[Rfam]
RNA sequence: AAACCAUCUUAAACAGAGUUUUAAAUGGUUC
Numbered sequence: 001a002a003a004c005c006a007u008c009u010u011a012a013a014c015a016g017a018g019u020u021u022u023a024a025a026u027g028g029u030u031c
Base pairs, nucleotide, nucleotide: 002030003029004028005027006026007025009024010023011022012021013020014018

The family of this 31-nucleotide sequence from Leptocoma aspasia is "Iron response element II".
From the family's description: IRE, TFRC, SLC40A1, SDHB, SLC11A2, CDC42BPA, ACO2, ALAS2_H.SAPIENS, CDC14A, EPAS1, ALAS2, qoxD, Hao1, NDUFS1, transferrin, Aconitate.
Rfam 15.1 lists 5,197 matches to the family in 722 species.
The family's consensus secondary structure is taken from published work.